Annotation
The record is a 101-nucleotide sequence, which matches "Mitochondrial DNA control region secondary structure A" in Rfam.
[Rfam]
RNA sequence: CUUAUUGAUGGCUCAACAUUAAAGUACUUUACAAGUACAUAUAAUAUUUAAAUUGGUUAUGUAAUUAGUGCAUUAAUGCUUAACCCCAUGAAUAAUGUACA
Numbered sequence: 001c002u003u004a005u006u007g008a009u010g011g012c013u014c015a016a017c018a019u020u021a022a023a024g025u026a027c028u029u030u031a032c033a034a035g036u037a038c039a040u041a042u043a044a045u046a047u048u049u050a051a052a053u054u055g056g057u058u059a060u061g062u063a064a065u066u067a068g069u070g071c072a073u074u075a076a077u078g079c080u081u082a083a084c085c086c087c088a089u090g091a092a093u094a095a096u097g098u099a100c101a
Base pairs, nucleotide, nucleotide: 005092006091008089009088010087011086013083017078018077019076024038025037026036027035028034029033039054059073060072061071062070063069
Dot-bracket structure: ....((.((((.(...(((....((((((...))))))(..............)....(((((.....)))))..)))....)..)))).)).........

The family's consensus secondary structure is taken from published work. The literature on the family includes a 2008 paper in Mol Biol Evol by Pereira et al., "Evidence for variable selective pressures at a large secondary structure of the human mitochondrial DNA control region".